[Rfam]
RNA sequence: GCCCAAAGUCGCACGUGCCUGUGGGUGUCCGCCGAUCCUCGAAUGGUGAGGGAAAUCGGUAAGGUAACUGGAGCUAACCCCUCCAGUCGGUCUAGCGGCCAACCGCCAGCCCGAGGACACCUUGAAGCAACGACGGUGCGGGCCUUU
Numbered sequence: 001g002c003c004c005a006a007a008g009u010c011g012c013a014c015g016u017g018c019c020u021g022u023g024g025g026u027g028u029c030c031g032c033c034g035a036u037c038c039u040c041g042a043a044u045g046g047u048g049a050g051g052g053a054a055a056u057c058g059g060u061a062a063g064g065u066a067a068c069u070g071g072a073g074c075u076a077a078c079c080c081c082u083c084c085a086g087u088c089g090g091u092c093u094a095g096c097g098g099c100c101a102a103c104c105g106c107c108a109g110c111c112c113g114a115g116g117a118c119a120c121c122u123u124g125a126a127g128c129a130a131c132g133a134c135g136g137u138g139c140g141g142g143c144c145u146u147u
Stems, first nucleotide, its partner, number of pairs: 001143004008134004016129003023122008031060005037051005068086005087114004093108001095106004
Background
The family of this 147-nucleotide sequence from Mesorhizobium japonicum is "Alphaproteobacterial sRNA ar45". The base pairs follow the family's consensus structure. The literature on the family includes a 2012 paper in RNA Biol by del Val et al., "A survey of sRNA families in alpha-proteobacteria". It is annotated as a small RNA.